Shown here is a 73-nucleotide RNA from Arcicella aurantiaca, a member of the family "tRNA". The family has 954 seed sequences and 5,335,975 matches in Rfam 15.1. The base pairs follow the family's consensus structure, which is taken from published work. The family's RNA type in Rfam is transfer RNA.
[Rfam]
RNA sequence: GCGAAAAUAGCUCAGCUGGUAGAGCGCAACCUUGCCAAGGUUGAGGUCGCCGGUUCGAACCCGGUUUUUCGCU
Numbered sequence: 001g002c003g004a005a006a007a008u009a010g011c012u013c014a015g016c017u018g019g020u021a022g023a024g025c026g027c028a029a030c031c032u033u034g035c036c037a038a039g040g041u042u043g044a045g046g047u048c049g050c051c052g053g054u055u056c057g058a059a060c061c062c063g064g065u066u067u068u069u070c071g072c073u
Stems, first nucleotide, its partner, number of pairs: 001072007010025004027043005049065005